Source information: Small nucleolar RNA SNORA42/SNORA80 family: a 137-nucleotide RNA sequence from Marmota marmota. Pairs were carried over by alignment from the consensus structure, which was predicted with RNAalifold. From the family's description: The members of this family belong to the H/ACA class of snoRNAs that guide the sites of modification of uridines to pseudouridines. Human ACA42 (SNORA42) was cloned from HeLa cells by immunoprecipitation with anti-GAR1 antibody. Its is predicted to guide the pseudouridylation of residues U109 and U572 of 18S rRNA. ACA42 shares the same host gene with ACA26, ACA46, ACA50. Rfam 15.1 lists 1,535 matches to the family in 183 species. Rfam classes the family as an H/ACA-box small nucleolar RNA.
[Rfam]
RNA sequence: GCAUGGUAAUGGAUUUAUGGCAGGUCCUCCUCUGUGGGCCUCUCAUAGUGUACCCAUGCCAGAGUAAACUGCAGCCUUGAACCAUUGCCCGGCUUCCUUGUCUGUGGGCUGUGAGCACUGAAGAAGGUUGCACAGUU
Numbered sequence: 001g002c003a004u005g006g007u008a009a010u011g012g013a014u015u016u017a018u019g020g021c022a023g024g025u026c027c028u029c030c031u032c033u034g035u036g037g038g039c040c041u042c043u044c045a046u047a048g049u050g051u052a053c054c055c056a057u058g059c060c061a062g063a064g065u066a067a068a069c070u071g072c073a074g075c076c077u078u079g080a081a082c083c084a085u086u087g088c089c090c091g092g093c094u095u096c097c098u099u100g101u102c103u104g105u106g107g108g109c110u111g112u113g114a115g116c117a118c119u120g121a122a123g124a125a126g127g128u129u130g131c132a133c134a135g136u137u
Base pairs, nucleotide, nucleotide: 001059002058003057004056005054006053007052008051015048016047017046018045019044020043022041023040024039025037026036072130073129074128075127076126077125083120084119088115090111091110092109093108094107095106